[Rfam]
The record is a 46-nucleotide sequence from Patiria miniata, which matches "Histone 3' UTR stem-loop" in Rfam. About the family: The mRNAs of metazoan histone genes lack a poly-A tail. 3' end processing occurs at a site between a highly conserved stem-loop (modelled by this family) and a purine rich region around 20 nts downstream (the histone downstream element, or HDE). The stem-loop is bound by a 31 kDa stem-loop binding protein (SLBP - also termed the histone hairpin binding protein, or HBP). Together with U7 snRNA binding of the HDE, SLBP binding nucleate s the formation of the processing complex. The histone 3' UTR stem-loop is also involved in nucleocytoplasmic transport of the mRNA, and in stability regulation and translation efficiency in the cytoplasm. It is annotated as a cis-regulatory element. The family has 50 seed sequences and 44,596 matches in Rfam 15.1. NCBI's taxonomy places the organism under Eukaryota, Metazoa, Eleutherozoa, Valvatida, Patiria.
RNA sequence: CCUCCGGUUCUUUUUAGAACCACUUAUACUCACAAAAGAGAUUUAU
Numbered sequence: 001c002c003u004c005c006g007g008u009u010c011u012u013u014u015u016a017g018a019a020c021c022a023c024u025u026a027u028a029c030u031c032a033c034a035a036a037a038g039a040g041a042u043u044u045a046u
Base pairs, nucleotide, nucleotide: 006021007020008019009018010017011016